A member of the RNA family "mir-315 microRNA precursor family" from Drosophila busckii, 83 nucleotides long. The match comes from Rfam's covariance-model search (90 bits). Pairs were carried over by alignment from the consensus structure, which was predicted with RNAalifold.
[Rfam]
RNA sequence: CGCUUAUAUCUUUUUGAUUGUUGCUCAGAAAGCCCUUGACUUAACCAGUUGGCUUUCGAGUAAUAAUCGAAACUAAAUAAGCG
Number, nucleotide and partner (000 for none) at each position: 001c083002g082003c081004u080005u079006a078007u077008a000009u000010c000011u000012u072013u071014u070015u069016g068017a067018u066019u000020g064021u063022u062023g061024c060025u059026c058027a000028g057029a056030a055031a054032g053033c052034c051035c000036u000037u000038g000039a000040c000041u000042u000043a000044a000045c000046c000047a000048g000049u000050u000051g034052g033053c032054u031055u030056u029057c028058g026059a025060g024061u023062a022063a021064u020065a000066a018067u017068c016069g015070a014071a013072a012073c000074u000075a000076a000077a007078u006079a005080a004081g003082c002083g001